[Rfam]
A member of the RNA family "TPP riboswitch aptamer (THI element)" from Bordetella genomosp. 4, 92 nucleotides long.
RNA sequence: CCCGUUGCUCCGGGGUGCACGCCAGUGCUGAGAUUCAGACCCGCGAACUUGACCCGGUUCAUACCGGCGUAAGAAGAGCAUUGACCUUGACA
Numbered sequence: 001c002c003c004g005u006u007g008c009u010c011c012g013g014g015g016u017g018c019a020c021g022c023c024a025g026u027g028c029u030g031a032g033a034u035u036c037a038g039a040c041c042c043g044c045g046a047a048c049u050u051g052a053c054c055c056g057g058u059u060c061a062u063a064c065c066g067g068c069g070u071a072a073g074a075a076g077a078g079c080a081u082u083g084a085c086c087u088u089g090a091c092a
Stems, first nucleotide, its partner, number of pairs: 006080005011043004016037001017028004048073004054067004
Its family is annotated with thiamine pyrophosphate binding in the Gene Ontology.
A search with the family's covariance model found it, with a score of 61 bits.
NCBI's taxonomy places the organism under Bacteria, Pseudomonadati, Burkholderiales, Alcaligenaceae, Bordetella.